A member of the RNA family "Rhizobiales sRNA Atu_C8" from Aureimonas jatrophae, 124 nucleotides long. Pairs were carried over by alignment from the consensus structure, which was predicted with CMfinder.
RNA sequence: CCCCAUGUUCAAGAAGCUCAUUCUCGUAAGGUGGCGCACACGCGAGACGGUCUGACGACCGUCCGGCUCUUGCCACGUGUGCGCAGUACAAAGGCCCCUCGAGGGCCUUUUUUGUUGCCCGCAA
Numbered sequence: 001c002c003c004c005a006u007g008u009u010c011a012a013g014a015a016g017c018u019c020a021u022u023c024u025c026g027u028a029a030g031g032u033g034g035c036g037c038a039c040a041c042g043c044g045a046g047a048c049g050g051u052c053u054g055a056c057g058a059c060c061g062u063c064c065g066g067c068u069c070u071u072g073c074c075a076c077g078u079g080u081g082c083g084c085a086g087u088a089c090a091a092a093g094g095c096c097c098c099u100c101g102a103g104g105g106c107c108u109u110u111u112u113u114g115u116u117g118c119c120c121g122c123a124a
Stems, first nucleotide, its partner, number of pairs: 009026001030119003034084009046063005066073002090109001092108006
A search with the family's covariance model found it, with a score of 72 bits. Lineage of the source: Bacteria > Pseudomonadota > Alphaproteobacteria > Aurantimonadaceae > Aureimonas. The literature on the family includes a 2012 paper in RNA Biol by Wilms et al., "Deep sequencing uncovers numerous small RNAs on all four replicons of the plant pathogen Agrobacterium tumefaciens".